[Rfam]
RNA sequence: GAGCUAUGAAGAUGAUUUUAUAGGAAUCUGAGAUUCCAUUGAAGACAUAAGAUCCAACUCUGAGCUCACUCCCCUA
Dot-bracket structure: ((((...........................................................)))).........
RNA: Small nucleolar RNA SNORD19
Organism: Phalacrocorax carbo